[Rfam]
RNA sequence: CGAGUCGGCAGGGCGGCCGCGCCGGUGCGACCCACCGGCGAGGAAAGUCCGGACUCCACAGGGCAGGGUGGUUGCUAACGGCAACCCGGGGCGACCCGCGGGACAGUGCCACAGAAAACAGACCGCCUGGCGGCAAGCCAGGUAAGGGUGAAACGGUGGUGUAAGAGACCACCAGCACCCCGGGUGACCGGGGUGGCUCGGUAAACCCCACCCGGAGCAAGGCCAAGAGGGAGCCCCUGGGCUCCUGCGCAGACGUUCGAGGGCUGCCCGUCCGAGUCUGCGGGUAGGCCGCACGAGCCUGUCGGCGACGGCAGGCCUAGAUGGAUGGUCGCCGCCGGGACGCGAGUCCCGGCACAGGAUCCGGCUUACGGCCGGCUCGCCCG
Numbered sequence: 001c002g003a004g005u006c007g008g009c010a011g012g013g014c015g016g017c018c019g020c021g022c023c024g025g026u027g028c029g030a031c032c033c034a035c036c037g038g039c040g041a042g043g044a045a046a047g048u049c050c051g052g053a054c055u056c057c058a059c060a061g062g063g064c065a066g067g068g069u070g071g072u073u074g075c076u077a078a079c080g081g082c083a084a085c086c087c088g089g090g091g092c093g094a095c096c097c098g099c100g101g102g103a104c105a106g107u108g109c110c111a112c113a114g115a116a117a118a119c120a121g122a123c124c125g126c127c128u129g130g131c132g133g134c135a136a137g138c139c140a141g142g143u144a145a146g147g148g149u150g151a152a153a154c155g156g157u158g159g160u161g162u163a164a165g166a167g168a169c170c171a172c173c174a175g176c177a178c179c180c181c182g183g184g185u186g187a188c189c190g191g192g193g194u195g196g197c198u199c200g201g202u203a204a205a206c207c208c209c210a211c212c213c214g215g216a217g218c219a220a221g222g223c224c225a226a227g228a229g230g231g232a233g234c235c236c237c238u239g240g241g242c243u244c245c246u247g248c249g250c251a252g253a254c255g256u257u258c259g260a261g262g263g264c265u266g267c268c269c270g271u272c273c274g275a276g277u278c279u280g281c282g283g284g285u286a287g288g289c290c291g292c293a294c295g296a297g298c299c300u301g302u303c304g305g306c307g308a309c310g311g312c313a314g315g316c317c318u319a320g321a322u323g324g325a326u327g328g329u330c331g332c333c334g335c336c337g338g339g340a341c342g343c344g345a346g347u348c349c350c351g352g353c354a355c356a357g358g359a360u361c362c363g364g365c366u367u368a369c370g371g372c373c374g375g376c377u378c379g380c381c382c383g
Base pairs, nucleotide, nucleotide: 001379002378003377004376005375006374007373008372009371011369012333013332014331015330016329017328018327020040021039022038023037024036025035026034027033045367046366047365049364050363051362052361053360054217055216056215057214061269062268063267064266066213067212068211069210070209071085072084073083074082075081086100087098088097089096090095101208102207106206107205108202109201110200123147124146125143126142127141128140129139130138131137155173156172157171158170159169160168175197176195177194178193179192180191181190182189183188221290222289223288224287249281250280251279252278253277254276261273262272263271264270297316298315299314300313301312302311303310304309
This 383-nucleotide RNA sequence from Actinokineospora iranica belongs to the Rfam family "Bacterial RNase P class A". The match comes from Rfam's covariance-model search (279 bits). Ribonuclease P (RNase P) is a ubiquitous endoribonuclease, found in archaea, bacteria and eukarya as well as chloroplasts and mitochondria. The base pairs follow the family's consensus structure, which is taken from published work.